[Rfam]
RNA: Small nucleolar RNA U105B
Organism: Galemys pyrenaicus
RNA sequence: CUGUGUGCGAGUGAUGACAGUGCUGGUCCUGACACCUCGUGAUAGUCAGUCUCAAAGUAAACGCCCUGACGCACCCUAG
Numbered sequence: 001c002u003g004u005g006u007g008c009g010a011g012u013g014a015u016g017a018c019a020g021u022g023c024u025g026g027u028c029c030u031g032a033c034a035c036c037u038c039g040u041g042a043u044a045g046u047c048a049g050u051c052u053c054a055a056a057g058u059a060a061a062c063g064c065c066c067u068g069a070c071g072c073a074c075c076c077u078a079g
Base pairs, nucleotide, nucleotide: 005074006073007072008071009070010021012019013018029049030048031047032046033045